This 158-nucleotide sequence from Glycine max belongs to the Rfam family "MIR4371 microRNA precursor family". Gene Ontology terms of the family: RISC complex and miRNA-mediated post-transcriptional gene silencing. The source organism's lineage runs through Eukaryota, Streptophytina, rosids, Fabaceae and Glycine subgen. Soja.

[Rfam]
RNA sequence: CUGUUAAGUGAUGAUGUGACAGACAAAGUGUUAUGUCAUCAUCUCUUAUCAUUGACACCUCAUUGUCACAUCAUCACCUUCAAUGAUGUGACAAUAAUGUGUCAGUAAUUAGACCUGAUGACGUGACACUCUAUCUGUUACGUCAUCACUUAAUGGAA
Numbered sequence: 001c002u003g004u005u006a007a008g009u010g011a012u013g014a015u016g017u018g019a020c021a022g023a024c025a026a027a028g029u030g031u032u033a034u035g036u037c038a039u040c041a042u043c044u045c046u047u048a049u050c051a052u053u054g055a056c057a058c059c060u061c062a063u064u065g066u067c068a069c070a071u072c073a074u075c076a077c078c079u080u081c082a083a084u085g086a087u088g089u090g091a092c093a094a095u096a097a098u099g100u101g102u103c104a105g106u107a108a109u110u111a112g113a114c115c116u117g118a119u120g121a122c123g124u125g126a127c128a129c130u131c132u133a134u135c136u137g138u139u140a141c142g143u144c145a146u147c148a149c150u151u152a153a154u155g156g157a158a
Stems, first nucleotide, its partner, number of pairs: 001156023025132001027130015044113003048109002051106002054103005070087005

The family is grouped with related families in Rfam's "MIR4387 microRNA precursor clan".